Rfam assigns this 89-nucleotide RNA from Brevibacillus fluminis to the family "Glycine riboswitch aptamer". Taxonomically the source falls in Brevibacillus (Bacteria, Bacillati, Caryophanales, Paenibacillaceae). Gene Ontology term of the family: glycine biosynthetic process.

RNA sequence: CAUCUCUGGAGAGAGCUUUUACAGCCACCAAAGGGGAAACUCACCGCCAUGUGAGGUAACUCUCAGGUAAAAAGGACAGAGAAGGAAGA
Numbered sequence: 001c002a003u004c005u006c007u008g009g010a011g012a013g014a015g016c017u018u019u020u021a022c023a024g025c026c027a028c029c030a031a032a033g034g035g036g037a038a039a040c041u042c043a044c045c046g047c048c049a050u051g052u053g054a055g056g057u058a059a060c061u062c063u064c065a066g067g068u069a070a071a072a073a074g075g076a077c078a079g080a081g082a083a084g085g086a087a088g089a
Base pairs, nucleotide, nucleotide: 001084003082004081005080006079007078008077015025016024017023027068028067029066031063034062035061036060040055041054042053043052044051
Dot-bracket structure: (.((((((......(((.....))).(((.(..(((...(((((......)))))....))))..)))........)))))).).....